[Rfam]
RNA sequence: GGUGCCGCUGCGGUCGGGGCUUCGGGACGUAAAAGACCAAAGAACCCGGGAAAAAACCAACCAACCAAACCAAACCCCGCGUAGGUCACCCGCGCGGGUGAAAGCGGUCGAUCCGGCUGGCGUGGCGGCGCUCCGGGCGUGCAGUCUCGCCCCGAGGCGCGAGCGCCUCAUCCCUCCACGACCGCAGACAUGCGUCGGCCCCCGCCGGGAGCGCAAAUCCCAGUGCGAGGGCCUGACCAACGAGGAAGAACGGACCUCUUCCCC
Numbered sequence: 001g002g003u004g005c006c007g008c009u010g011c012g013g014u015c016g017g018g019g020c021u022u023c024g025g026g027a028c029g030u031a032a033a034a035g036a037c038c039a040a041a042g043a044a045c046c047c048g049g050g051a052a053a054a055a056a057c058c059a060a061c062c063a064a065c066c067a068a069a070c071c072a073a074a075c076c077c078c079g080c081g082u083a084g085g086u087c088a089c090c091c092g093c094g095c096g097g098g099u100g101a102a103a104g105c106g107g108u109c110g111a112u113c114c115g116g117c118u119g120g121c122g123u124g125g126c127g128g129c130g131c132u133c134c135g136g137g138c139g140u141g142c143a144g145u146c147u148c149g150c151c152c153c154g155a156g157g158c159g160c161g162a163g164c165g166c167c168u169c170a171u172c173c174c175u176c177c178a179c180g181a182c183c184g185c186a187g188a189c190a191u192g193c194g195u196c197g198g199c200c201c202c203c204g205c206c207g208g209g210a211g212c213g214c215a216a217a218u219c220c221c222a223g224u225g226c227g228a229g230g231g232c233c234u235g236a237c238c239a240a241c242g243a244g245g246a247a248g249a250a251c252g253g254a255c256c257u258c259u260u261c262c263c264c
Base pairs, nucleotide, nucleotide: 007241009239010238017078018077019076086101087100088099089098090097091096116172118170119169120168197233198232199231200230201229203227204226205225207221208220209219210218244262245261246260247259248258

Rfam assigns this 264-nucleotide RNA sequence from Streptomyces echinoruber to the family "Streptomyces sRNA 4677". The pairing is the family consensus, mapped onto this sequence. For this family Rfam cites "Complex intra-operonic dynamics mediated by a small RNA in Streptomyces coelicolor" (Hindra et al., PLoS One, 2014). By type it is a small RNA. NCBI's taxonomy places the organism under Bacteria, Bacillati, Kitasatosporales, Streptomycetaceae, Streptomyces. From the family's description: Located in the intergenic region between anti-sigma factor SCO4677 gene and a putative regulatory protein gene SCO4676. scr4677 expression requires the SCO4677 activity and scr4677 sRNA itself seem to affect the levels of the SCO4676-associated transcripts.